[Rfam]
Nucleotides: 130
Base pairs, nucleotide, nucleotide: 011115012114013113014112018031019030020029032110033109034108035107036106037105040049041048050095051094052093058071059070060069061068074089075088076087077086
Number, partner (000 for none) and nucleotide at each position: 001000u002000g003000g004000a005000c006000a007000a008000a009000u010000a011115u012114u013113c014112c015000u016000a017000a018031c019030u020029c021000u022000c023000g024000a025000a026000a027000g028000a029020g030019a031018g032110a033109c034108g035107g036106g037105g038000g039000a040049c041048g042000c043000u044000u045000u046000u047000c048041u049040g050095g051094g052093g053000c054000g055000a056000a057000u058071c059070u060069g061068c062000g063000c064000u065000u066000u067000u068061g069060c070059g071058g072000a073000a074089g075088g076087g077086a078000a079000g080000g081000c082000c083000c084000a085000a086077u087076u088075c089074c090000u091000a092000g093052c094051c095050c096000g097000u098000c099000a100000a101000c102000u103000a104000a105037c106036u107035c108034c109033g110032u111000a112014g113013g114012a115011a116000g117000u118000c119000a120000a121000a122000g123000g124000g125000g126000c127000a128000g129000u130000c

Record summary
Shown here is a 130-nucleotide RNA sequence from Paenalicyclobacillus mengziensis, a member of the family "c-di-AMP riboswitch aptamer (ydaO/yuaA leader)". NCBI's taxonomy places the organism under Bacteria, Bacillati, Bacilli, Caryophanales, Paenalicyclobacillus. Its family is annotated with regulation of gene expression and cyclic-di-AMP binding in the Gene Ontology. The match comes from Rfam's covariance-model search (74 bits).